[Rfam]
RNA sequence: CGUUGUGGAUGAUGAGAUAUAAAAAUUACAGUUAUCCCUGGCUGAUGCAUCAGGUGCUGAAAUUUGUAAAUCUGACACAACC
Number, nucleotide and partner (000 for none) at each position: 001c000002g081003u080004u079005g078006u077007g076008g000009a000010u000011g000012a000013u000014g000015a000016g000017a000018u000019a000020u000021a000022a000023a000024a000025a000026u000027u000028a000029c000030a000031g000032u000033u000034a000035u000036c000037c000038c000039u000040g000041g000042c000043u000044g000045a000046u000047g000048c000049a000050u000051c000052a000053g000054g000055u000056g000057c000058u000059g000060a000061a000062a000063u000064u000065u000066g000067u000068a000069a000070a000071u000072c000073u000074g000075a000076c007077a006078c005079a004080a003081c002082c000
RNA: Small nucleolar RNA R38
Organism: Eucalyptus grandis